[Rfam]
RNA sequence: CCGGCGGUAAAUCUCUGGCCUGACGCACAGAAAUCGAAUUAGGCCGUUGGAUGUGGGUGAGUCUGCAUAACAAGACAAAGCCCUAAACUAUCCGAAACAUUCCGCGGUAGAUUCGACAGGUAUAUGGAGAGAAAGUUCACGUU
Number, nucleotide and partner (000 for none) at each position: 001c000002c141003g140004g000005c000006g000007g136008u135009a000010a000011a000012u130013c129014u128015c127016u126017g125018g121019c120020c119021u118022g117023a000024c000025g000026c000027a000028c000029a000030g000031a000032a000033a000034u116035c115036g114037a113038a112039u000040u000041a000042g000043g108044c107045c106046g000047u104048u000049g102050g101051a100052u099053g098054u000055g083056g082057g081058u080059g000060a000061g076062u075063c074064u073065g000066c000067a000068u000069a000070a000071c000072a000073a064074g063075a062076c061077a000078a000079a000080g058081c057082c056083c055084u000085a000086a000087a000088c000089u000090a000091u000092c000093c000094g000095a000096a000097a000098c053099a052100u051101u050102c049103c000104g047105c000106g045107g044108u043109a000110g000111a000112u038113u037114c036115g035116a034117c022118a021119g020120g019121u018122a000123u000124a000125u017126g016127g015128a014129g013130a012131g000132a000133a000134a000135g008136u007137u000138c000139a000140c003141g002142u000143u000
Group II catalytic intron D1-D4-3: a 143-nucleotide RNA sequence from Sphingobacterium sp. SGL-16. Its family is annotated with Group II intron splicing in the Gene Ontology. The source organism's lineage runs through Bacteria, Pseudomonadati, Sphingobacteriales, Sphingobacteriaceae and Sphingobacterium. From the family's description: Group II introns are found in rRNA, tRNA and mRNA of organelles in fungi, plants and protists, and also in mRNA in bacteria.